[Rfam]
RNA sequence: UGACCGGGCCGUGACUGGCGCGCUGGGAUGGGACGGACCAUCGGGGAGCGGCCUGUGUGUGACCGAGUGCCGUGCGCCUGGGCCAGACCG
Numbered sequence: 001u002g003a004c005c006g007g008g009c010c011g012u013g014a015c016u017g018g019c020g021c022g023c024u025g026g027g028a029u030g031g032g033a034c035g036g037a038c039c040a041u042c043g044g045g046g047a048g049c050g051g052c053c054u055g056u057g058u059g060u061g062a063c064c065g066a067g068u069g070c071c072g073u074g075c076g077c078c079u080g081g082g083c084c085a086g087a088c089c090g
Stems, first nucleotide, its partner, number of pairs: 005055008015045002017078005028041004069083003
Overview: The record is a 90-nucleotide RNA sequence from Streptomyces sp. Amel2xC10, which matches "ZMP/ZTP riboswitch aptamer (pfl RNA motif)" in Rfam. Taxonomically the source falls in Streptomyces (Bacteria, Bacillati, Actinomycetota, Actinomycetes).